[Rfam]
RNA sequence: GUAGGCUAUGGAGAUUAUGUACCACGUACGACACUAGGCAAAGUUAUCGGUGCUGCUUGUGCUAUAACAGGUGUAUUGACGAUUGCUUUGCCCGUGCCAAUCAUAGUAUCGAAU
Numbered sequence: 001g002u003a004g005g006c007u008a009u010g011g012a013g014a015u016u017a018u019g020u021a022c023c024a025c026g027u028a029c030g031a032c033a034c035u036a037g038g039c040a041a042a043g044u045u046a047u048c049g050g051u052g053c054u055g056c057u058u059g060u061g062c063u064a065u066a067a068c069a070g071g072u073g074u075a076u077u078g079a080c081g082a083u084u085g086c087u088u089u090g091c092c093c094g095u096g097c098c099a100a101u102c103a104u105a106g107u108a109u110c111g112a113a114u
Stems, first nucleotide, its partner, number of pairs: 001114002005110001007108003011104001013102004019097004037077002040074001049063003
The family of this 114-nucleotide RNA sequence from Adineta ricciae is "Potassium channel RNA editing signal".
It scores 75 bits against the family's covariance model.
By type it is a cis-regulatory element.
The family's consensus secondary structure is taken from published work.
From the family's description: This family represents a group of sequences related to the human potassium channel Kv1.1 hairpin element which directs the efficient modification of an adenosine to inosine by an adenosine deaminase acting on RNA (ADAR).
NCBI's taxonomy places the organism under Eukaryota, Opisthokonta, Metazoa, Protostomia, Adineta.